[Rfam]
The record is a 61-nucleotide RNA sequence from Phormidium tenue, which matches "Nitrogen stress-induced RNA 1" in Rfam. The base pairs follow the family's consensus structure. The source organism's lineage runs through Bacteria, Cyanobacteriota, Oscillatoriales, Oscillatoriaceae and Phormidium tenue. A search with the family's covariance model found it, with a score of 55 bits.
RNA sequence: AGGUAGAUGCACCCUGAUUGUUAGCCCUAGGAUACCUGGAGGGAUCCUGGGGCUUUUUUUU
Numbered sequence: 001a002g003g004u005a006g007a008u009g010c011a012c013c014c015u016g017a018u019u020g021u022u023a024g025c026c027c028u029a030g031g032a033u034a035c036c037u038g039g040a041g042g043g044a045u046c047c048u049g050g051g052g053c054u055u056u057u058u059u060u061u
Stems, first nucleotide, its partner, number of pairs: 002013003024053010